[Rfam]
RNA sequence: AAAAAAAAUGGCUCGCUUUUUCCAGCGAGCCCCAAGCAUCUUUUACACGAAAAUCGUGCAAGAUACUUCAAUGGGAGAGGAGAAACCGGAGGAAGAGCUUAUUGGGGAAACGUAAGUCUUCUCCGCGG
Numbered sequence: 001a002a003a004a005a006a007a008a009u010g011g012c013u014c015g016c017u018u019u020u021u022c023c024a025g026c027g028a029g030c031c032c033c034a035a036g037c038a039u040c041u042u043u044u045a046c047a048c049g050a051a052a053a054u055c056g057u058g059c060a061a062g063a064u065a066c067u068u069c070a071a072u073g074g075g076a077g078a079g080g081a082g083a084a085a086c087c088g089g090a091g092g093a094a095g096a097g098c099u100u101a102u103u104g105g106g107g108a109a110a111c112g113u114a115a116g117u118c119u120u121c122u123c124c125g126c127g128g
Base pairs, nucleotide, nucleotide: 011030012029013028014027015026016025017024031075032074033073034072087125088124089123090122092121093120094119095118097117098116099115100114101113